[Rfam]
RNA sequence: AAGCAGGAUUCAGGCUAGAAUACAGCUGCUACGUGCUGUGUUAUUGUUCCCCCUGCUCAGAAAUAAUGUUUCUUAAUUAUACCUGUCUAGCAGCCAGGGAUGCUUGUUGUCAGACAU
Numbered sequence: 001a002a003g004c005a006g007g008a009u010u011c012a013g014g015c016u017a018g019a020a021u022a023c024a025g026c027u028g029c030u031a032c033g034u035g036c037u038g039u040g041u042u043a044u045u046g047u048u049c050c051c052c053c054u055g056c057u058c059a060g061a062a063a064u065a066a067u068g069u070u071u072c073u074u075a076a077u078u079a080u081a082c083c084u085g086u087c088u089a090g091c092a093g094c095c096a097g098g099g100a101u102g103c104u105u106g107u108u109g110u111c112a113g114a115c116a117u
Base pairs, nucleotide, nucleotide: 003056004055005054006053007052017044019042020041021040022039023038024037025036026035082098083097084096085095087093088092